[Rfam]
RNA sequence: UAUUUAUCAGUGCCAGUGCACACUAUAAAUG
Numbered sequence: 001u002a003u004u005u006a007u008c009a010g011u012g013c014c015a016g017u018g019c020a021c022a023c024u025a026u027a028a029a030u031g
Stems, first nucleotide, its partner, number of pairs: 001031007009024004014018001